[Rfam]
RNA: Bacterial RNase P class A
Organism: Paenibacillus lentus
RNA sequence: AAAGUUUGACAGACAAUCGCCGGCGGCUUUGCAGCCGCGGGAGGAAAGUCCGGGCUCCGCAGGGCAGGGUGCUGGAUAAUGUCCAGUCGGCGCGAGCCGAAGGAUAGUGCCACAGAAACGGACCGCCGAUGGCCGCCGCAAGGCGAGCACAGGCAAGGAUGGAACCGAGGUGUAAGAGACCCCGAGGAACGCAGGUGACUUCGUUCCUGGUAAACCCCACUUGGAGCAAGACCUAAUGAGACGCAGUUUGUCACCCGCUUGGGGGACAAGCAGCUUUUGCCCGAAGCGCGUCUAGGUUGGUCGCUGGAGCCUUGCAGUAAUGUACGGCCUAGAUAGAUGAUUGUCGCUUAGUAGCGGAAGGGUAGUUCCCGAUUGACCGCGAACGGUACAGAACCCGGCUUACGGCAAACUUUCAUC
Numbered sequence: 001a002a003a004g005u006u007u008g009a010c011a012g013a014c015a016a017u018c019g020c021c022g023g024c025g026g027c028u029u030u031g032c033a034g035c036c037g038c039g040g041g042a043g044g045a046a047a048g049u050c051c052g053g054g055c056u057c058c059g060c061a062g063g064g065c066a067g068g069g070u071g072c073u074g075g076a077u078a079a080u081g082u083c084c085a086g087u088c089g090g091c092g093c094g095a096g097c098c099g100a101a102g103g104a105u106a107g108u109g110c111c112a113c114a115g116a117a118a119c120g121g122a123c124c125g126c127c128g129a130u131g132g133c134c135g136c137c138g139c140a141a142g143g144c145g146a147g148c149a150c151a152g153g154c155a156a157g158g159a160u161g162g163a164a165c166c167g168a169g170g171u172g173u174a175a176g177a178g179a180c181c182c183c184g185a186g187g188a189a190c191g192c193a194g195g196u197g198a199c200u201u202c203g204u205u206c207c208u209g210g211u212a213a214a215c216c217c218c219a220c221u222u223g224g225a226g227c228a229a230g231a232c233c234u235a236a237u238g239a240g241a242c243g244c245a246g247u248u249u250g251u252c253a254c255c256c257g258c259u260u261g262g263g264g265g266a267c268a269a270g271c272a273g274c275u276u277u278u279g280c281c282c283g284a285a286g287c288g289c290g291u292c293u294a295g296g297u298u299g300g301u302c303g304c305u306g307g308a309g310c311c312u313u314g315c316a317g318u319a320a321u322g323u324a325c326g327g328c329c330u331a332g333a334u335a336g337a338u339g340a341u342u343g344u345c346g347c348u349u350a351g352u353a354g355c356g357g358a359a360g361g362g363u364a365g366u367u368c369c370c371g372a373u374u375g376a377c378c379g380c381g382a383a384c385g386g387u388a389c390a391g392a393a394c395c396c397g398g399c400u401u402a403c404g405g406c407a408a409a410c411u412u413u414c415a416u417c
Stems, first nucleotide, its partner, number of pairs: 001413008010404001012345007020041002023038006046401003050398005055226004062282004067222005072086005087101001088099004102217002107215002109211003123158002125154003130149002166184002169181003186207006193200002230302004239293006273287005309328003313324004